[Rfam]
RNA sequence: CGGGCAGUAUCCGAUGCGAACUGCACCGUGGCACGCAACAGCAAGCAAUAACUGAAUACGAUUCUGCCUUGAUCAUUACAUGACAGGGACGGAGGA
Numbered sequence: 001c002g003g004g005c006a007g008u009a010u011c012c013g014a015u016g017c018g019a020a021c022u023g024c025a026c027c028g029u030g031g032c033a034c035g036c037a038a039c040a041g042c043a044a045g046c047a048a049u050a051a052c053u054g055a056a057u058a059c060g061a062u063u064c065u066g067c068c069u070u071g072a073u074c075a076u077u078a079c080a081u082g083a084c085a086g087g088g089a090c091g092g093a094g095g096a
Stems, first nucleotide, its partner, number of pairs: 001028003004024005010019002064092003067088005073083003
About this RNA: Shown here is a 96-nucleotide sequence from Planococcus rifietoensis, a member of the family "pan motif". It scores 62 bits against the family's covariance model. It is annotated as a cis-regulatory element. Pairs were carried over by alignment from the consensus structure, which is taken from published work.